[Rfam]
RNA sequence: AGACUGUAGAAUCUCUACGGGUAAGUGUGUGAUUUCUUCAGUGACAUCACACUUGCCUGCAGAGAUUUUCCAGUCU
Numbered sequence: 001a002g003a004c005u006g007u008a009g010a011a012u013c014u015c016u017a018c019g020g021g022u023a024a025g026u027g028u029g030u031g032a033u034u035u036c037u038u039c040a041g042u043g044a045c046a047u048c049a050c051a052c053u054u055g056c057c058u059g060c061a062g063a064g065a066u067u068u069u070c071c072a073g074u075c076u
Stems, first nucleotide, its partner, number of pairs: 003074004009068008020058002023054001027052005
RNA: mir-216 microRNA precursor family